[Rfam]
RNA: Small Cajal body specific RNA 23
RNA sequence: GCGCUCAUUGGGGCUUGGUCUCUUCCUUGUGGUCCUGACCUGCCUUCCCUGAGCGAGAGCAACAGAACUGGUUUUGGGGGUCUCCUGUCUGAGUAGACUGGGAGACCAUGGUUUUCAGUGCGACA
Numbered sequence: 001g002c003g004c005u006c007a008u009u010g011g012g013g014c015u016u017g018g019u020c021u022c023u024u025c026c027u028u029g030u031g032g033u034c035c036u037g038a039c040c041u042g043c044c045u046u047c048c049c050u051g052a053g054c055g056a057g058a059g060c061a062a063c064a065g066a067a068c069u070g071g072u073u074u075u076g077g078g079g080g081u082c083u084c085c086u087g088u089c090u091g092a093g094u095a096g097a098c099u100g101g102g103a104g105a106c107c108a109u110g111g112u113u114u115u116c117a118g119u120g121c122g123a124c125a
Base pairs, nucleotide, nucleotide: 003054004053005052006051007050012044013043014042017040018039019038020037025032026031065121067119068118069117070116071115074111075110076109079107080106081105082104083103084102085101086100087098088097089096090095